[Rfam]
RNA: EFASI RNA
RNA sequence: UUGAACCGAUACCGAGGCAGGCCCACAGCCUGAGGGGAUGACCUGCAAUAGCAGGAGGUUGCACCGAGUGCAUCACCUAGACCCCGCAAUACCUCAACGGCUGCCCGCUCUGGCGCACAGGUAUCGUUCA
Number, nucleotide and partner (000 for none) at each position: 001u000002u130003g129004a128005a127006c000007c126008g125009a124010u123011a122012c121013c120014g000015a000016g000017g000018c032019a031020g030021g029022c028023c000024c000025a000026c000027a000028g022029c021030c020031u019032g018033a000034g085035g084036g083037g082038a000039u000040g000041a000042c055043c054044u053045g052046c051047a000048a000049u000050a000051g046052c045053a044054g043055g042056a078057g077058g076059u075060u072061g071062c070063a069064c068065c000066g000067a000068g064069u063070g062071c061072a060073u000074c000075a059076c058077c057078u056079a000080g000081a000082c037083c036084c035085c034086g000087c000088a000089a000090u000091a000092c000093c000094u000095c000096a000097a000098c000099g000100g000101c000102u000103g000104c000105c000106c000107g000108c000109u000110c000111u000112g000113g000114c000115g000116c000117a000118c000119a000120g013121g012122u011123a010124u009125c008126g007127u005128u004129c003130a002